[Rfam]
RNA: ALIL pseudoknot
Nucleotides: 117
Base pairs, nucleotide, nucleotide: 016032017031018030019029020028078117079116080115081114082113089112090111092109093108095106096105097104098103
Number, partner (000 for none) and nucleotide at each position: 001000a002000g003000c004000u005000u006000a007000u008000u009000u010000u011000g012000c013000c014000c015000a016032g017031g018030c019029g020028g021000a022000g023000c024000u025000c026000g027000a028020c029019c030018g031017c032016c033000c034000a035000u036000u037000c038000a039000a040000a041000c042000g043000a044000u045000g046000a047000u048000c049000c050000g051000g052000u053000u054000c055000a056000u057000a058000g059000a060000g061000g062000a063000u064000c065000a066000u067000c068000g069000c070000g071000g072000g073000g074000a075000c076000c077000a078117u079116g080115g081114g082113g083000u084000c085000g086000a087000g088000c089112c090111a091000a092109u093108u094000u095106g096105c097104a098103g099000g100000g101000u102000u103098c104097u105096g106095c107000c108093g109092a110000u111090u112089g113082c114081c115080c116079c117078a